[Rfam]
RNA sequence: AUAAUGUUUUAUCUCCGACCAACGAUGCCUAAAAGGAAAAGCCUCAUGGCACUUUGGCGGUAGGGUAUAAUUGGAAACGGUUAUGCCUGCCAUUUUUGCAAAGGAGGUAUAAAUGAAAAAAG
Numbered sequence: 001a002u003a004a005u006g007u008u009u010u011a012u013c014u015c016c017g018a019c020c021a022a023c024g025a026u027g028c029c030u031a032a033a034a035g036g037a038a039a040a041g042c043c044u045c046a047u048g049g050c051a052c053u054u055u056g057g058c059g060g061u062a063g064g065g066u067a068u069a070a071u072u073g074g075a076a077a078c079g080g081u082u083a084u085g086c087c088u089g090c091c092a093u094u095u096u097u098g099c100a101a102a103g104g105a106g107g108u109a110u111a112a113a114u115g116a117a118a119a120a121a122g
Stems, first nucleotide, its partner, number of pairs: 011108006019057004024052001026051004034044003063088011089099002
RNA: Molybdenum/Tungsten riboswitch aptamer (Moco RNA motif)
Organism: Caldisericum exile